[Rfam]
The family of this 30-nucleotide sequence from Symbiodinium natans is "Prion pseudoknot".
Rfam 15.1 lists 421 matches to the family in 241 species.
A reference for the family is Barrette et al. (2001), "Pseudoknots in prion protein mRNAs confirmed by comparative sequence analysis and pattern searching", Nucleic Acids Res.
Rfam classes the family as a cis-regulatory element.
RNA sequence: CCAUGGUGGUGGUCCCAUGGUGGUGGCUGG
Number, nucleotide and partner (000 for none) at each position: 001c020002c019003a018004u017005g016006g015007u000008g000009g000010u000011g000012g000013u000014c000015c006016c005017a004018u003019g002020g001021u000022g000023g000024u000025g000026g000027c000028u000029g000030g000
About this RNA: The organism belongs to Symbiodinium, within Eukaryota.